This 123-nucleotide RNA sequence from Castor canadensis belongs to the Rfam family "Small nucleolar RNA SNORA27".
The pairing is the family consensus, mapped onto this sequence.
The family is grouped with related families in Rfam's "SNORA27 clan".
The source organism's lineage runs through Eukaryota, Teleostomi, Mammalia, Castoridae and Castor.
Its family is annotated with RNA processing and nucleolus in the Gene Ontology.
RNA sequence: UGACUAUUAAGAACUGUAUUAAAGAUCCAUGUACAUUUAUUGGUCAUUCAAGUGGGGCAAAGGAAAUAUCCUUUUAAAACUCAGGCAAACUGAGUGUCCCAUAACUUGUCAGAGGAAACAAAU
Numbered sequence: 001u002g003a004c005u006a007u008u009a010a011g012a013a014c015u016g017u018a019u020u021a022a023a024g025a026u027c028c029a030u031g032u033a034c035a036u037u038u039a040u041u042g043g044u045c046a047u048u049c050a051a052g053u054g055g056g057g058c059a060a061a062g063g064a065a066a067u068a069u070c071c072u073u074u075u076a077a078a079a080c081u082c083a084g085g086c087a088a089a090c091u092g093a094g095u096g097u098c099c100c101a102u103a104a105c106u107u108g109u110c111a112g113a114g115g116a117a118a119c120a121a122a123u
Stems, first nucleotide, its partner, number of pairs: 032059001034057001036055001040051004069116006084098004

Rfam describes the family as follows. ACA27 is a member of the H/ACA class of snoRNA that guide the sites of modification of uridines to pseudouridines. The family's RNA type in Rfam is H/ACA-box small nucleolar RNA.